[Rfam]
The family of this 87-nucleotide RNA from Gossypium lobatum is "MIR7486 microRNA precursor family". The family has 9 seed sequences and 10,132 matches in Rfam 15.1. Lineage of the source: Eukaryota > Viridiplantae > Embryophyta > eudicotyledons > Gossypium. The base pairs follow the family's consensus structure, which was predicted with RNAalifold.
Nucleotides: 087
Base pairs, nucleotide, nucleotide: 001086002085003084004083005082007080008079009078010077011076012075013074014073015072016071017070018069019068020067021066023064024063025062026061027060028059029058031056032055033054035052036051037050038049040047041046
Number, partner (000 for none) and nucleotide at each position: 001086c002085u003084c004083a005082a006000g007080g008079a009078a010077g011076c012075g013074c014073u015072u016071u017070g018069u019068c020067c021066a022000u023064g024063u025062g026061g027060a028059c029058a030000g031056a032055a033054a034000a035052c036051g037050u038049u039000a040047c041046c042000u043000u044000g045000a046041g047040g048000a049038a050037g051036c052035g053000c054033u055032u056031u057000g058029u059028g060027u061026c062025c063024a064023c065000g066021u067020g068019g069018a070017c071016a072015a073014a074013g075012u076011g077010c078009u079008u080007c081000a082005u083004u084003g085002a086001g087000g